[Rfam]
RNA sequence: AUGCUAGCCAUCUGAUGAAUGACUUGGCUCGAGCGCUGACGAAGGUCGUGGCAAGCUGCGAUAAGCCCGGGCGAGGCGCAUGCAGCCUUAGAACCCGGGAUUACCUAAUGGGAAUCCUGAUAUGGUAAACCCAUAUCGUUCGCAACAGCGAAAGGGAACCCCGUUAAAUGAAACAUCUUAGUAACGGGAGGAAAAGAAAGCAACUGCGAUGCUCUGAGUAAUGGCGAAUGAAAGGAGCCUAUGGCAAACCGAACCCGUUCGGGAAACCGAACUGGGAUGUGGUGUUGUAGGACUCGGUCGCCACCUAACUGAAGAAGUCGAAGCUCACUGGAAAGUGACGCCAGAGAGGGUGAAUGCCCCGUAGACGUAAACCAGAAGGUGCAGGACCGAGUAUCCUGAGUACUGUGCCUUGGAUUUGGCGCAGGAAACUGGGAGUAUCAACUUCCAACCAUAAAUACGUCUCGAGACCGAUAGCGAACGCAGUACCGUGAGGGAAAGUUGAAAAGAAUCCCGAAAGGGAGAUGAAAAGAGUCUGAAAUCAGAUGGUGAUAGUCG
Numbered sequence: 001a002u003g004c005u006a007g008c009c010a011u012c013u014g015a016u017g018a019a020u021g022a023c024u025u026g027g028c029u030c031g032a033g034c035g036c037u038g039a040c041g042a043a044g045g046u047c048g049u050g051g052c053a054a055g056c057u058g059c060g061a062u063a064a065g066c067c068c069g070g071g072c073g074a075g076g077c078g079c080a081u082g083c084a085g086c087c088u089u090a091g092a093a094c095c096c097g098g099g100a101u102u103a104c105c106u107a108a109u110g111g112g113a114a115u116c117c118u119g120a121u122a123u124g125g126u127a128a129a130c131c132c133a134u135a136u137c138g139u140u141c142g143c144a145a146c147a148g149c150g151a152a153a154g155g156g157a158a159c160c161c162c163g164u165u166a167a168a169u170g171a172a173a174c175a176u177c178u179u180a181g182u183a184a185c186g187g188g189a190g191g192a193a194a195a196g197a198a199a200g201c202a203a204c205u206g207c208g209a210u211g212c213u214c215u216g217a218g219u220a221a222u223g224g225c226g227a228a229u230g231a232a233a234g235g236a237g238c239c240u241a242u243g244g245c246a247a248a249c250c251g252a253a254c255c256c257g258u259u260c261g262g263g264a265a266a267c268c269g270a271a272c273u274g275g276g277a278u279g280u281g282g283u284g285u286u287g288u289a290g291g292a293c294u295c296g297g298u299c300g301c302c303a304c305c306u307a308a309c310u311g312a313a314g315a316a317g318u319c320g321a322a323g324c325u326c327a328c329u330g331g332a333a334a335g336u337g338a339c340g341c342c343a344g345a346g347a348g349g350g351u352g353a354a355u356g357c358c359c360c361g362u363a364g365a366c367g368u369a370a371a372c373c374a375g376a377a378g379g380u381g382c383a384g385g386a387c388c389g390a391g392u393a394u395c396c397u398g399a400g401u402a403c404u405g406u407g408c409c410u411u412g413g414a415u416u417u418g419g420c421g422c423a424g425g426a427a428a429c430u431g432g433g434a435g436u437a438u439c440a441a442c443u444u445c446c447a448a449c450c451a452u453a454a455a456u457a458c459g460u461c462u463c464g465a466g467a468c469c470g471a472u473a474g475c476g477a478a479c480g481c482a483g484u485a486c487c488g489u490g491a492g493g494g495a496a497a498g499u500u501g502a503a504a505a506g507a508a509u510c511c512c513g514a515a516a517g518g519g520a521g522a523u524g525a526a527a528a529g530a531g532u533c534u535g536a537a538a539u540c541a542g543a544u545g546g547u548g549a550u551a552g553u554c555g
Stems, first nucleotide, its partner, number of pairs: 007547009021533001022499002026469002028466006034459002043106004047060003066099006075087003110118003139152005159190001160188005170177002200207002211238005221229002241452004249282003259270004293391004302381003317366003323339001325338004342346001348360003403424007431446005486493002
RNA: Archaeal large subunit ribosomal RNA, nucleotides 10 to 564
Organism: candidate division MSBL1 archaeon SCGC-AAA261D19